[Rfam]
Shown here is a 130-nucleotide RNA sequence from Peromyscus maniculatus, a member of the family "Small nucleolar RNA SNORA72". NCBI's taxonomy places the organism under Eukaryota, Gnathostomata, Tetrapoda, Theria, Peromyscus maniculatus. U72 is a member of the H/ACA class of snoRNAs. The snoRNA gene is located in intron 4 of the ribosomal L30 protein gene in human, mouse and chicken. Rfam 15.1 lists 1,541 matches to the family in 547 species. The literature on the family includes a 1997 paper in Genes Dev by Ganot et al., "The family of box ACA small nucleolar RNAs is defined by an evolutionarily conserved secondary structure and ubiquitous sequence elements essential for RNA accumulation". Gene Ontology terms of the family: nucleolus and RNA processing. It is annotated as an H/ACA-box small nucleolar RNA.
RNA sequence: AUGCAGCUAGUCUUCCUGUUCUCAUUCCAAGGUAAUCAGGACAAGCUAAAAGUCCUCUACAGUAAGAACAUGCACAUGUCUCCAGACCUGUUCUAUCUCUAGGCCUGAUUUUCUAAAUGUUGUGAAAUAU
Dot-bracket structure: ..(.............((((((.(((.......))).)))))).............).........(.((.((.........(((.((((........).))).)))...........))))).......